[Rfam]
RNA sequence: AUGUAAGCAUUCUAGGGUUCCGAGCGAUCGCUGUCUGUGACCGAGAGAAUGCGCGAAGGAAACUUCGUACACGGAAGGAUAAAAGCCUGGGAGAU
Number, nucleotide and partner (000 for none) at each position: 001a000002u000003g000004u000005a000006a000007g052008c051009a050010u049011u048012c047013u000014a000015g042016g041017g000018u000019u000020c039021c037022g035023a032024g031025c030026g000027a000028u000029c000030g025031c024032u023033g000034u000035c022036u000037g021038u000039g020040a000041c016042c015043g000044a000045g000046a000047g012048a011049a010050u009051g008052c007053g068054c067055g066056a065057a064058g063059g000060a000061a000062a000063c058064u057065u056066c055067g054068u053069a000070c090071a000072c093073g000074g000075a000076a088077g087078g086079a000080u000081a000082a000083a000084a000085g000086c078087c077088u076089g000090g070091g000092a000093g072094a000095u000

This 95-nucleotide sequence from Savagea serpentis belongs to the Rfam family "Guanidine-I riboswitch aptamer". Taxonomically the source falls in Savagea (Bacteria, Bacillati, Bacilli, Caryophanales). This family represents a conserved RNA structure found upstream of the ykkC and yxkD genes in Bacillus subtilis and related genes in other bacteria. A search with the family's covariance model found it, with a score of 77 bits. The pairing is the family consensus, mapped onto this sequence.